RNA sequence: UCAGGGUGAAGCUUGUGUUAGGUGCAAACAUACGCCCACCGUCCUCUUCAAGAGCGGCGGUGGUACCUCAUUCAGUGCACUUGGGAAGGUCUGAGGAAGCCGACAAUCUCUAAGCGGGAGUCCCUCUCAAGAGGGAGCUCGGGGACCAGAAACGACACUCGCGCGCUUUAGGGACCGGAGAGCUGGCACACGACCGCAGGGCGACCUGCGCGAUGCCCACACCACACACUCCGCCCCGCGCCUGGUGAACCGACCCGGGUGGCUAGCAACUAUCAGUUCAAUACACAAAGCCGUCAUCGACAGGCAACUCAAUUCAGACUACUCUCACCCUGA
Numbered sequence: 001u002c003a004g005g006g007u008g009a010a011g012c013u014u015g016u017g018u019u020a021g022g023u024g025c026a027a028a029c030a031u032a033c034g035c036c037c038a039c040c041g042u043c044c045u046c047u048u049c050a051a052g053a054g055c056g057g058c059g060g061u062g063g064u065a066c067c068u069c070a071u072u073c074a075g076u077g078c079a080c081u082u083g084g085g086a087a088g089g090u091c092u093g094a095g096g097a098a099g100c101c102g103a104c105a106a107u108c109u110c111u112a113a114g115c116g117g118g119a120g121u122c123c124c125u126c127u128c129a130a131g132a133g134g135g136a137g138c139u140c141g142g143g144g145a146c147c148a149g150a151a152a153c154g155a156c157a158c159u160c161g162c163g164c165g166c167u168u169u170a171g172g173g174a175c176c177g178g179a180g181a182g183c184u185g186g187c188a189c190a191c192g193a194c195c196g197c198a199g200g201g202c203g204a205c206c207u208g209c210g211c212g213a214u215g216c217c218c219a220c221a222c223c224a225c226a227c228a229c230u231c232c233g234c235c236c237c238g239c240g241c242c243u244g245g246u247g248a249a250c251c252g253a254c255c256c257g258g259g260u261g262g263c264u265a266g267c268a269a270c271u272a273u274c275a276g277u278u279c280a281a282u283a284c285a286c287a288a289a290g291c292c293g294u295c296a297u298c299g300a301c302a303g304g305c306a307a308c309u310c311a312a313u314u315c316a317g318a319c320u321a322c323u324c325u326c327a328c329c330c331u332g333a
Base pairs, nucleotide, nucleotide: 001333002332003331004330007327008326009325013288014287015286016285017284018283020082021081022080023079024078036063037062038061039060040059041058042057043056091317092316093315094314095313098264099263100262101261107119108118109117110116121136122135123134124133125132126131138259139258140257141256142255143254156244157243290305291304292303293301294300